[Rfam]
RNA sequence: UUGCAGUGAUGACUUGAAUCUGUCAAUCCCCUGAGUGCAGUCACUGAUGUCUCUAUGCUUCUGAGCAA
Numbered sequence: 001u002u003g004c005a006g007u008g009a010u011g012a013c014u015u016g017a018a019u020c021u022g023u024c025a026a027u028c029c030c031c032u033g034a035g036u037g038c039a040g041u042c043a044c045u046g047a048u049g050u051c052u053c054u055a056u057g058c059u060u061c062u063g064a065g066c067a068a
Stems, first nucleotide, its partner, number of pairs: 001068004
The family of this 68-nucleotide RNA sequence from Pipistrellus kuhlii is "Small nucleolar RNA SNORD110". Its Rfam clan is "SNORD110 clan". Gene Ontology terms of the family: RNA processing and nucleolus.